[Rfam]
RNA sequence: CCAGUAUUCGCAGGUAGGCCAAGAUGUCCUACAGAAAAAUCUUGGGUUAGAAUUACAGGGGGUCUGG
Numbered sequence: 001c002c003a004g005u006a007u008u009c010g011c012a013g014g015u016a017g018g019c020c021a022a023g024a025u026g027u028c029c030u031a032c033a034g035a036a037a038a039a040u041c042u043u044g045g046g047u048u049a050g051a052a053u054u055a056c057a058g059g060g061g062g063u064c065u066g067g
Stems, first nucleotide, its partner, number of pairs: 001067004006063004011058001014056004019045007026032002
RNA: MAT2A 3'UTR stem loop E